[Rfam]
This 152-nucleotide sequence from Salvia splendens belongs to the Rfam family "U12 minor spliceosomal RNA". NCBI's taxonomy places the organism under Eukaryota, Tracheophyta, Euphyllophyta, Spermatophyta, core Calosphace. A search with the family's covariance model found it, with a score of 76 bits. A reference for the family is Tarn and Steitz (1997), "Pre-mRNA splicing: the discovery of a new spliceosome doubles the challenge", Trends Biochem Sci. The family has 62 seed sequences and 2,106 matches in Rfam 15.1.
RNA sequence: UUGCCUUAAACUAAUGAGUAAGGAAAACAAAGCGGAAGGUGAGAACCAGCCGCCGCAUCUCUAAUAAUGGUGCAUGAAUUUAUGGAGGGGUAAUAGGCUGGUCGCAGCGUAGACGCUGCCUCUUUUGCAGAACUCGCUCAGGCGGGCCUCCC
Numbered sequence: 001u002u003g004c005c006u007u008a009a010a011c012u013a014a015u016g017a018g019u020a021a022g023g024a025a026a027a028c029a030a031a032g033c034g035g036a037a038g039g040u041g042a043g044a045a046c047c048a049g050c051c052g053c054c055g056c057a058u059c060u061c062u063a064a065u066a067a068u069g070g071u072g073c074a075u076g077a078a079u080u081u082a083u084g085g086a087g088g089g090g091u092a093a094u095a096g097g098c099u100g101g102u103c104g105c106a107g108c109g110u111a112g113a114c115g116c117u118g119c120c121u122c123u124u125u126u127g128c129a130g131a132a133c134u135c136g137c138u139c140a141g142g143c144g145g146g147c148c149u150c151c152c
Stems, first nucleotide, its partner, number of pairs: 004023005032053004038047002055073005089152002095149005101143001104139001107137003116130004